[Rfam]
RNA sequence: CUCUUAUAAAGAGAGGUGGAGGGAAGUGCCCUAUGAAGCCCGGCAACCAGCGAUUACGCAAAGGUGCCAAUUCACACAAAGUGUAAACUUUGAAAGAUGAGAG
Dot-bracket structure: (((((((.....(.(((...(((..[[[)))......))))((((.((.(((....)))...))))))...(]]].((((((....))))))..).)))))))
The family of this 103-nucleotide RNA from Solibacillus silvestris is "SAM riboswitch aptamer (S box leader)". Pairs were carried over by alignment from the consensus structure, which is taken from published work.